Shown here is a 51-nucleotide RNA sequence from Polerovirus CABYV, a member of the family "Exoribonuclease-resistant RNA (xrRNA) plant-infecting virus (class 3)". By type it is a cis-regulatory element. On this family, see Gezelle et al., bioRxiv [Preprint] 2024: "The pseudoknot structure of a viral RNA reveals a conserved mechanism for programmed exoribonuclease resistance". Rfam's curators write: Exoribonuclease-resistant RNA (xrRNA) plant-infecting virus (class 3) is a ncRNA that was reported in Plant viruses.
[Rfam]
RNA sequence: CACUAGCCAAGCACACACGAGUUGCAAGCAUUGGAAGUCUCAGUCUCGUUA
Numbered sequence: 001c002a003c004u005a006g007c008c009a010a011g012c013a014c015a016c017a018c019g020a021g022u023u024g025c026a027a028g029c030a031u032u033g034g035a036a037g038u039c040u041c042a043g044u045c046u047c048g049u050u051a
Stems, first nucleotide, its partner, number of pairs: 007034002010032001011029002017049005
Dot-bracket structure: ......[[.[[[....(((((......]]..]]]..........)))))..